[Rfam]
RNA sequence: UGUCCUUAGAAACCAAGUGUGGGUGUGGCCUGAGUUUAAAAUACGGCGACCCAUCCUUGGUUUCUGAGGUCC
Dot-bracket structure: .(.((((.((((((.((...((((...(((..............))).))))...)).)))))).)))).).
This 72-nucleotide RNA sequence from Myripristis murdjan belongs to the Rfam family "mir-551 microRNA precursor family". The family has 29 seed sequences and 1,097 matches in Rfam 15.1. The literature on the family includes a 2008 paper in Genome Res by Murchison et al., "Conservation of small RNA pathways in platypus". Taxonomically the source falls in Myripristis (Eukaryota, Opisthokonta, Actinopterygii, Osteoglossocephalai). The family's consensus secondary structure was predicted with RNAalifold.